[Rfam]
Rfam assigns this 263-nucleotide RNA from Terrilactibacillus tamarindi to the family "BsrG".

RNA sequence: AGUAAAUAGAAUAGUUCGAGGGCGGAACGCAAGCUGCCUCCUUUUAGUUAAAAGGAGGGGGGUGAGGCAAUGACGACAUUUGAAACGAUCACGCUGAUGAUUAACUUCGCAUCUUUAGUUGUUCUAAUCGGGUCGUCUAAAGAAAAGCAUAAAAAAUAGCCCGCCCUCGAGCUGGCCACUCAAGCGGAUUAUUUUUUAAUUGCAGUGCGAUCGCCUUUUGAGCGAUUCUGUUUACACUUCCGUCAGUGUUAGUGGCACUGACG
Numbered sequence: 001a002g003u004a005a006a007u008a009g010a011a012u013a014g015u016u017c018g019a020g021g022g023c024g025g026a027a028c029g030c031a032a033g034c035u036g037c038c039u040c041c042u043u044u045u046a047g048u049u050a051a052a053a054g055g056a057g058g059g060g061g062g063u064g065a066g067g068c069a070a071u072g073a074c075g076a077c078a079u080u081u082g083a084a085a086c087g088a089u090c091a092c093g094c095u096g097a098u099g100a101u102u103a104a105c106u107u108c109g110c111a112u113c114u115u116u117a118g119u120u121g122u123u124c125u126a127a128u129c130g131g132g133u134c135g136u137c138u139a140a141a142g143a144a145a146a147g148c149a150u151a152a153a154a155a156a157u158a159g160c161c162c163g164c165c166c167u168c169g170a171g172c173u174g175g176c177c178a179c180u181c182a183a184g185c186g187g188a189u190u191a192u193u194u195u196u197u198a199a200u201u202g203c204a205g206u207g208c209g210a211u212c213g214c215c216u217u218u219u220g221a222g223c224g225a226u227u228c229u230g231u232u233u234a235c236a237c238u239u240c241c242g243u244c245a246g247u248g249u250u251a252g253u254g255g256c257a258c259u260g261a262c263g
Base pairs, nucleotide, nucleotide: 002235003234004233005232007230008229009228011226012210014208015171016170017169018168019167020166021165022164024161025160030064031063037062038061039060040059041058042057043056044055045054072137073136074135075134076133077132086099087098109129112126182197183196211225212224213223214222241263242262243261244260245259246258247257248256249255250254

The family's RNA type in Rfam is small RNA.
It scores 70 bits against the family's covariance model.
bsrE, bsrG and bsrH pair through intermolecular interactions with antisense sRNAs. They form type I toxin/antitoxin system that includes an mRNA encoding for a short, toxic peptide (bsrE, bsrG and bsrH) and an antitoxin that is comprised of an antisense RNA. bsrG encodes a 39-amino-acid toxin, and the 180 nucleotide antisense sRNA called SR4 acts as the antitoxin (they overlap by 123 nucleotides). SR4 interaction with the 3'UTR of bsrG RNA promotes bsrG degradation and inhibits its translation. BsrG interferes with cell envelope biosynthesis, causes membrane invaginations and delocalisation of the cell wall synthesis and initiates autolysis. bsrE RNA encodes 30 amino-acid toxin peptide.
For this family Rfam cites "Novel small RNA-encoding genes in the intergenic regions of Bacillus subtilis" (Saito et al., Gene, 2008).